The family of this 109-nucleotide RNA sequence from Solanum lycopersicum is "Small nucleolar RNA Z152/R70/R12/". By type it is a C/D-box small nucleolar RNA. A reference for the family is Barneche et al. (2001), "Identification of 66 box C/D snoRNAs in Arabidopsis thaliana: extensive gene duplications generated multiple isoforms predicting new ribosomal RNA 2'-O-methylation sites", J Mol Biol. The source organism's lineage runs through Eukaryota, Streptophytina, Tracheophyta, asterids and Solanum subgen. Lycopersicon.
RNA sequence: UAUGCUGUGAUGAGAUUAAGCACCAUAGGGUGUAUUGGGCAGUGGAAGAAGGUUUAAAAGCCUUCUCCGUGAGCUUAUUAAUUAACGACUUCUCCUUCCACUGAGCAUC
Numbered sequence: 001u002a003u004g005c006u007g008u009g010a011u012g013a014g015a016u017u018a019a020g021c022a023c024c025a026u027a028g029g030g031u032g033u034a035u036u037g038g039g040c041a042g043u044g045g046a047a048g049a050a051g052g053u054u055u056a057a058a059a060g061c062c063u064u065c066u067c068c069g070u071g072a073g074c075u076u077a078u079u080a081a082u083u084a085a086c087g088a089c090u091u092c093u094c095c096u097u098c099c100a101c102u103g104a105g106c107a108u109c
Base pairs, nucleotide, nucleotide: 002108003107004106005105